Source information
EFASI RNA: a 147-nucleotide RNA from Escherichia coli. By type it is a small RNA.
RNA sequence: CAGGCGUAAUACCACAACCCUUAAGUUAGCGCUUAUGGGCUAGAAGCCCCGGAGAUACCCCUGCUUCGUCAGGCAGUCUGUACCGCGUACAGCCUGAAACUCCCUAAACCUCAACAACCAGCCACUCCGGCGUGAAGGUAUCGUUCU
Number, nucleotide and partner (000 for none) at each position: 001c000002a147003g146004g145005c000006g000007u143008a000009a141010u140011a139012c138013c137014a000015c000016a000017a000018c000019c000020c000021u000022u035023a034024a033025g032026u031027u000028a000029g000030c000031g026032c025033u024034u023035a022036u000037g000038g000039g000040c000041u000042a000043g000044a000045a000046g000047c000048c000049c000050c000051g103052g102053a101054g100055a000056u000057a000058c000059c000060c073061c072062u071063g070064c000065u000066u000067c000068g000069u000070c063071a062072g061073g060074c096075a095076g094077u000078c000079u091080g090081u089082a088083c087084c000085g000086c000087g083088u082089a081090c080091a079092g000093c000094c076095u075096g074097a000098a000099a000100c054101u053102c052103c051104c000105u000106a000107a000108a000109c000110c000111u000112c000113a000114a000115c000116a000117a000118c000119c000120a000121g000122c000123c000124a000125c000126u000127c000128c000129g000130g000131c000132g000133u000134g000135a000136a000137g013138g012139u011140a010141u009142c000143g007144u000145u004146c003147u002